[Rfam]
RNA sequence: UGGGGCUGAGGUAGUAGAUUGAAUAGUUGUGGGGUUGUACACCCCAAUCUGAGAUAACUAUACAAUCUACUGUCUUUCCUAA
Numbered sequence: 001u002g003g004g005g006c007u008g009a010g011g012u013a014g015u016a017g018a019u020u021g022a023a024u025a026g027u028u029g030u031g032g033g034g035u036u037g038u039a040c041a042c043c044c045c046a047a048u049c050u051g052a053g054a055u056a057a058c059u060a061u062a063c064a065a066u067c068u069a070c071u072g073u074c075u076u077u078c079c080u081a082a
Stems, first nucleotide, its partner, number of pairs: 001082001003080003008076014023061005032044004

let-7 microRNA precursor family: an 82-nucleotide sequence from Merluccius polli. Taxonomically the source falls in Merluccius (Eukaryota, Craniata, Neopterygii, Neoteleostei). About the family: This family represents the microRNAs (miRNA) let-7 and mir-98. let-7 was identified from a study of developmental timing in C. elegans, and was later shown to be part of a much larger class of non-coding RNAs termed miRNAs. Pairs were carried over by alignment from the consensus structure, which was predicted with RNAalifold. The literature on the family includes a 2001 paper in Cell by Ambros, "microRNAs: tiny regulators with great potential". Its family is annotated with miRNA-mediated post-transcriptional gene silencing and RISC complex in the Gene Ontology.